[Rfam]
Shown here is a 68-nucleotide sequence from Hucho hucho, a member of the family "Small nucleolar RNA SNORD2".
RNA sequence: GAGUGAAAUUAUGGCAUAUCUUUCGGGACAGACCUGAUUAAGGUGACCACUAUUUAUACUGAUCACUC
Dot-bracket structure: ((((((........................................................))))))
Numbered sequence: 001g002a003g004u005g006a007a008a009u010u011a012u013g014g015c016a017u018a019u020c021u022u023u024c025g026g027g028a029c030a031g032a033c034c035u036g037a038u039u040a041a042g043g044u045g046a047c048c049a050c051u052a053u054u055u056a057u058a059c060u061g062a063u064c065a066c067u068c
Stems, first nucleotide, its partner, number of pairs: 001068006
Rfam links the family to the GO terms RNA processing and nucleolus.